[Rfam]
RNA sequence: UUCUUUCAUCUUUUUAUCAAUGCAGUUGGGAAAAUUGAUAAAGAUUUUGAAGUAAGACCUUACAGCGUAUUUUCUCGCCGUGGUAUACACCGAGGAAGUACGCUUUUUA
Numbered sequence: 001u002u003c004u005u006u007c008a009u010c011u012u013u014u015u016a017u018c019a020a021u022g023c024a025g026u027u028g029g030g031a032a033a034a035u036u037g038a039u040a041a042a043g044a045u046u047u048u049g050a051a052g053u054a055a056g057a058c059c060u061u062a063c064a065g066c067g068u069a070u071u072u073u074c075u076c077g078c079c080g081u082g083g084u085a086u087a088c089a090c091c092g093a094g095g096a097a098g099u100a101c102g103c104u105u106u107u108u109a
Stems, first nucleotide, its partner, number of pairs: 003052004008047001011044011064104014080090003

The record is a 109-nucleotide RNA sequence from Atopococcus tabaci, which matches "23S methyl RNA motif" in Rfam.
By type it is a cis-regulatory element.
NCBI's taxonomy places the organism under Bacteria, Bacilli, Lactobacillales, Carnobacteriaceae, Atopococcus.